[Rfam]
RNA sequence: UACAACAUAUCAGCUAACAGGGCGGCAGCCAAAUCUCCCGGAAGGGAGGUGAGGCUAUGACAGUAUAUGAAGCAUUAUCCUUGAUGCUCGCAUUCGGCAUGUUUGUGAUUGCCGUGCUGUCUUUCCAUAAACGAAAAUGAGCCGCCCUGGCAAGGAUAACGGCUCAUUUCCAAUGACCUGAAUCUGGCUGCCCGCUCUUUUAGCGGUGGUUGUACAGGGGACCGGCGCCAACCGGUCCU
Numbered sequence: 001u002a003c004a005a006c007a008u009a010u011c012a013g014c015u016a017a018c019a020g021g022g023c024g025g026c027a028g029c030c031a032a033a034u035c036u037c038c039c040g041g042a043a044g045g046g047a048g049g050u051g052a053g054g055c056u057a058u059g060a061c062a063g064u065a066u067a068u069g070a071a072g073c074a075u076u077a078u079c080c081u082u083g084a085u086g087c088u089c090g091c092a093u094u095c096g097g098c099a100u101g102u103u104u105g106u107g108a109u110u111g112c113c114g115u116g117c118u119g120u121c122u123u124u125c126c127a128u129a130a131a132c133g134a135a136a137a138u139g140a141g142c143c144g145c146c147c148u149g150g151c152a153a154g155g156a157u158a159a160c161g162g163c164u165c166a167u168u169u170c171c172a173a174u175g176a177c178c179u180g181a182a183u184c185u186g187g188c189u190g191c192c193c194g195c196u197c198u199u200u201u202a203g204c205g206g207u208g209g210u211u212g213u214a215c216a217g218g219g220g221a222c223c224g225g226c227g228c229c230a231a232c233c234g235g236u237c238c239u
Base pairs, nucleotide, nucleotide: 001214002213003212004211005210008209011190012189013188014187015186016185018149019148020147021146022145023144024143025142026141033050035048036047037046038045039044059121060120061119062118063117064116065115072087073086074085096113097112098111099110160175192206193205194204195203218239219238220237221236222235223234224233225232
Rfam assigns this 239-nucleotide RNA from Paenibacillus macerans to the family "BsrG". On this family, see Meissner et al., J Biol Chem 2016: "In Vitro Characterization of the Type I Toxin-Antitoxin System bsrE/SR5 from Bacillus subtilis". Gene Ontology terms of the family: autolysis and toxin activity. The base pairs follow the family's consensus structure, which was predicted with WAR. The source organism's lineage runs through Bacteria, Bacillati, Bacilli, Paenibacillaceae and Paenibacillus. bsrE, bsrG and bsrH pair through intermolecular interactions with antisense sRNAs.